The family of this 107-nucleotide sequence from Desulfosporosinus fructosivorans is "azaaromatic riboswitch aptamer (yjdF RNA)".
RNA sequence: UUUAUGGAACGUAAAAACACGAUCCGGUAGGUAGUCCGGAUGCAUUGGUUGUCUUACCAAUGUCAGUAACCUUCCCCCUCGGGAUGUCCAUCGUUCUCUAAUUAUUA
Number, nucleotide and partner (000 for none) at each position: 001u000002u000003u000004a099005u000006g097007g096008a095009a094010c093011g092012u000013a000014a000015a000016a000017a000018c000019a000020c000021g000022a041023u040024c039025c038026g037027g036028u000029a000030g000031g000032u000033a000034g000035u000036c027037c026038g025039g024040a023041u022042g063043c062044a061045u060046u059047g058048g057049u056050u000051g000052u000053c000054u000055u000056a049057c048058c047059a046060a045061u044062g043063u042064c000065a000066g000067u000068a000069a000070c000071c000072u000073u084074c083075c082076c081077c000078c000079u000080c000081g076082g075083g074084a073085u000086g000087u000088c000089c000090a000091u000092c011093g010094u009095u008096c007097u006098c000099u004100a000101a000102u000103u000104a000105u000106u000107a000